[Rfam]
UnaL2 LINE 3' element: a 54-nucleotide sequence from Etheostoma spectabile. The match comes from Rfam's covariance-model search (59 bits). The family's consensus secondary structure is taken from published work. By type it is a cis-regulatory element. About the family: The eel long interspersed element (LINE) UnaL2 and its partner short interspersed element (SINE) share a conserved 3' tail containing a stem-loop that is critical for their retrotransposition.
RNA sequence: UAUUUAGCAAUUUGUAAGUCGCUUUGGAUAAAAGCGUCAGCUAAAUGACAUGUA
Numbered sequence: 001u002a003u004u005u006a007g008c009a010a011u012u013u014g015u016a017a018g019u020c021g022c023u024u025u026g027g028a029u030a031a032a033a034g035c036g037u038c039a040g041c042u043a044a045a046u047g048a049c050a051u052g053u054a
Stems, first nucleotide, its partner, number of pairs: 013043001014041002020036006
Lineage of the source: Eukaryota > Vertebrata > Teleostomi > Clupeocephala > Oligocephalus.